[Rfam]
RNA sequence: CCGGUGGCUUUCGCCACCGGCUAAAUUCCGUCGGCCCUCCGGGCCU
Dot-bracket structure: ((((((((....))))))))............(((((...))))).

Rfam assigns this 46-nucleotide RNA sequence from Chthoniobacter flavus to the family "Acido-Lenti-1 RNA". By type it is a small RNA. The source organism's lineage runs through Bacteria, Pseudomonadati, Chthoniobacteraceae, Chthoniobacter and Chthoniobacter flavus. The base pairs follow the family's consensus structure, which is taken from published work.